[Rfam]
RNA: Small nucleolar RNA R43
Nucleotides: 072
Base pairs, nucleotide, nucleotide: 001071002070041063042062043061
Number, partner (000 for none) and nucleotide at each position: 001071g002070a003000c004000a005000a006000u007000g008000a009000u010000g011000a012000u013000u014000c015000u016000a017000u018000g019000u020000u021000u022000g023000a024000u025000a026000u027000u028000a029000c030000a031000g032000a033000c034000c035000a036000g037000u038000u039000a040000c041063u042062a043061g044000c045000u046000g047000a048000a049000g050000a051000c052000a053000a054000u055000c056000g057000c058000a059000u060000a061043c062042u063041g064000c065000c066000u067000g068000a069000g070002u071001c072000u